[Rfam]
A member of the RNA family "Bacterial large subunit ribosomal RNA" from Marinobacter gudaonensis, 362 nucleotides of a longer RNA.
Nucleotides: 362
Base pairs, nucleotide, nucleotide: 001362002361003360004359009357010356011355012354013353014352015351016350018348019347020346035059036058037057038056039055044049060102061101062100063099064098065097075088076087077086078085079084103107115341116340117339118338119337120336121335122333123332126140127139128138143178144177145176146175147174148173149172150171151168155164156163157162181328182327183326184325186258187257188256191255192254193251194250195249196248197247200246201245202244211235212234213233214232215231218227219226259277260276261275262274263273264272278282288315298314299313300312301311302310303309
Number, partner (000 for none) and nucleotide at each position: 001362u002361g003360a004359g005000a006000g007000a008000a009357c010356u011355c012354g013353g014352g015351u016350a017000a018348a019347g020346g021000a022000a023000c024000u025000a026000g027000g028000c029000a030000a031000a032000a033000u034000g035059g036058u037057g038056c039055c040000g041000u042000a043000a044049c045000u046000u047000c048000g049044g050000g051000a052000g053000a054000a055039g056038g057037c058036a059035c060102g061101c062100u063099g064098g065097u066000u067000g068000u069000a070000u071000g072000u073000g074000a075088u076087a077086c078085c079084c080000c081000u082000g083000c084079g085078g086077g087076u088075g089000g090000a091000g092000c093000a094000g095000a096000a097065g098064c099063c100062a101061g102060u103107c104000g105000a106000a107103g108000a109000u110000a111000c112000c113000a114000g115341g116340c117339c118338c119337c120336u121335g122333c123332g124000a125000c126140u127139g128138u129000u130000u131000a132000u133000u134000a135000a136000a137000a138128a139127c140126a141000c142000a143178g144177c145176a146175c147174u148173g149172u150171g151168c152000a153000a154000a155164c156163a157162c158000g159000a160000a161000a162157g163156u164155g165000g166000a167000c168151g169000u170000a171150u172149a173148c174147g175146g176145u177144g178143u179000g180000a181328c182327g183326c184325c185000u186258g187257c188256c189000c190000g191255g192254u193251g194250c195249c196248g197247g198000a199000a200246g201245g202244u203000u204000a205000a206000u207000u208000g209000a210000u211235g212234g213233g214232g215231u216000u217000a218227g219226c220000g221000c222000u223000u224000g225000c226219g227218c228000g229000a230000a231215g232214c233213u234212c235211u236000u237000g238000a239000u240000c241000g242000a243000a244202g245201c246200c247197c248196c249195g250194g251193u252000a253000a254192a255191c256188g257187g258186c259277g260276g261275c262274c263273g264272u265000a266000a267000c268000u269000a270000u271000a272264a273263c274262g275261g276260u277259c278282c279000u280000a281000a282278g283000g284000u285000a286000g287000c288315g289000a290000a291000a292000u293000u294000c295000c296000u297000u298314g299313u300312c301311g302310g303309g304000u305000a306000a307000g308000u309303u310302c311301c312300g313299a314298c315288c316000u317000g318000c319000a320000c321000g322000a323000a324000u325184g326183g327182c328181g329000u330000a331000a332123c333122g334000a335121u336120g337119g338118g339117g340116g341115c342000g343000c344000u345000g346020u347019c348018u349000c350016u351015a352014c353013c354012c355011g356010a357009g358000a359004c360003u361002c362001a